Shown here is a 113-nucleotide RNA sequence, a member of the family "THF (Tetrahydrofolate) riboswitch aptamer".
On this family, see Ames et al., Chem Biol 2010: "A eubacterial riboswitch class that senses the coenzyme tetrahydrofolate".
The sequence is in the family's curated seed alignment.
[Rfam]
RNA sequence: UGCAAAAUAGGUUUCCAUGCGUCAAGUGUUUUGUGGAUGGGGAGUUGCCACAGAAACGAAAAGUCGGUUCGCGUGCGGACCGGACUUACGAUAUGGUUACCGCACCCGUUGCA
Numbered sequence: 001u002g003c004a005a006a007a008u009a010g011g012u013u014u015c016c017a018u019g020c021g022u023c024a025a026g027u028g029u030u031u032u033g034u035g036g037a038u039g040g041g042g043a044g045u046u047g048c049c050a051c052a053g054a055a056a057c058g059a060a061a062a063g064u065c066g067g068u069u070c071g072c073g074u075g076c077g078g079a080c081c082g083g084a085c086u087u088a089c090g091a092u093a094u095g096g097u098u099a100c101c102g103c104a105c106c107c108g109u110u111g112c113a
Stems, first nucleotide, its partner, number of pairs: 001113005010101003015096005020090003026057002029055008040107003044103001061087005